RNA sequence: GCGCUAAGCCACCCGGUGGAUGGCUCGGCUCGGGCGCCGAGGAAGGCCGUGGCAAGCGGCGAUACGCCCCGGGGAGCCGCAUGCAGGCUUCGAUCCGGGGAUCGCCGAAUGGGACCUCCUGCCGUGGGUCAACCCACGGCGCUCGGGAAACCCGCAAGGGGAGUACCGAGCGGGAACCCCCCCAACGGAAACAUCUUAGUAGGGGGAGGAGAAGAAACCAAUUGGGAUCCCCUGAGUAGGGGCGACCGAAAGGGGGAGAGCCCAAACCGAACGUCCAUGCGAAGAGCAUGGACGGAUGUGGGGUUGCAGGGCCCCGCGUCCCCCCUAGCCCGGAUAGCCGAAGUCGGCUGGAAAGCCGCGCCGUAGAGGGUGACAGCCCCGUAGGCUAAAUCCGGGUGGGGGAUGGCGGGUGUCCCUGAGUACCACGGCUUGGUUUUGCCGUGGGAAGCUGGGGGGCACCGACCUCCAAGGCUAAAUACGUCCCGAGACCGAUAGCGAACUAAGUACCGUGAGGGAAAGCUGAAAAGCACCCCGGAAGGGGGGUGAAAAGAGCCUGAAACCGGGUGGCGACAGGU
Numbered sequence: 001g002c003g004c005u006a007a008g009c010c011a012c013c014c015g016g017u018g019g020a021u022g023g024c025u026c027g028g029c030u031c032g033g034g035c036g037c038c039g040a041g042g043a044a045g046g047c048c049g050u051g052g053c054a055a056g057c058g059g060c061g062a063u064a065c066g067c068c069c070c071g072g073g074g075a076g077c078c079g080c081a082u083g084c085a086g087g088c089u090u091c092g093a094u095c096c097g098g099g100g101a102u103c104g105c106c107g108a109a110u111g112g113g114a115c116c117u118c119c120u121g122c123c124g125u126g127g128g129u130c131a132a133c134c135c136a137c138g139g140c141g142c143u144c145g146g147g148a149a150a151c152c153c154g155c156a157a158g159g160g161g162a163g164u165a166c167c168g169a170g171c172g173g174g175a176a177c178c179c180c181c182c183c184a185a186c187g188g189a190a191a192c193a194u195c196u197u198a199g200u201a202g203g204g205g206g207a208g209g210a211g212a213a214g215a216a217a218c219c220a221a222u223u224g225g226g227a228u229c230c231c232c233u234g235a236g237u238a239g240g241g242g243c244g245a246c247c248g249a250a251a252g253g254g255g256g257a258g259a260g261c262c263c264a265a266a267c268c269g270a271a272c273g274u275c276c277a278u279g280c281g282a283a284g285a286g287c288a289u290g291g292a293c294g295g296a297u298g299u300g301g302g303g304u305u306g307c308a309g310g311g312c313c314c315c316g317c318g319u320c321c322c323c324c325c326u327a328g329c330c331c332g333g334a335u336a337g338c339c340g341a342a343g344u345c346g347g348c349u350g351g352a353a354a355g356c357c358g359c360g361c362c363g364u365a366g367a368g369g370g371u372g373a374c375a376g377c378c379c380c381g382u383a384g385g386c387u388a389a390a391u392c393c394g395g396g397u398g399g400g401g402g403a404u405g406g407c408g409g410g411u412g413u414c415c416c417u418g419a420g421u422a423c424c425a426c427g428g429c430u431u432g433g434u435u436u437u438g439c440c441g442u443g444g445g446a447a448g449c450u451g452g453g454g455g456g457c458a459c460c461g462a463c464c465u466c467c468a469a470g471g472c473u474a475a476a477u478a479c480g481u482c483c484c485g486a487g488a489c490c491g492a493u494a495g496c497g498a499a500c501u502a503a504g505u506a507c508c509g510u511g512a513g514g515g516a517a518a519g520c521u522g523a524a525a526a527g528c529a530c531c532c533c534g535g536a537a538g539g540g541g542g543g544u545g546a547a548a549a550g551a552g553c554c555u556g557a558a559a560c561c562g563g564g565u566g567g568c569g570a571c572a573g574g575u
Stems, first nucleotide, its partner, number of pairs: 008568009022554001023520002027490002029487006035480002045106003048061003067100006076088003111120003142170005177208001178206005188195002218225002229256005239247002259473004267301003277289004313410004321402004337386003343359001345358004362366001368380003423444007451467005507514002
The record is a 575-nucleotide part of an RNA from Thermofilum pendens, which matches "Archaeal large subunit ribosomal RNA" in Rfam. The family's consensus secondary structure is taken from published work. The source organism's lineage runs through Archaea, Thermoprotei, Thermofilales, Thermofilum and Thermofilum pendens. Rfam links the family to the GO terms structural constituent of ribosome and ribosome. Rfam's curators put it in the seed alignment.